[Rfam]
RNA sequence: UUGGUUCCGGUUCACGUCAGCACCGUGCGGGCGACCCGGGGCGCC
Number, nucleotide and partner (000 for none) at each position: 001u000002u000003g045004g044005u043006u000007c039008c038009g037010g036011u000012u000013c000014a000015c033016g032017u031018c030019a000020g028021c027022a026023c000024c000025g000026u022027g021028c020029g000030g018031g017032c016033g015034a000035c000036c010037c009038g008039g007040g000041g000042c000043g005044c004045c003

Shown here is a 45-nucleotide RNA sequence from Kribbella flavida, a member of the family "L31-Actinobacteria ribosomal protein leader". Lineage of the source: Bacteria > Bacillati > Propionibacteriales > Kribbella > Kribbella flavida. Clan: Ribosomal Protein L31 Leader clan.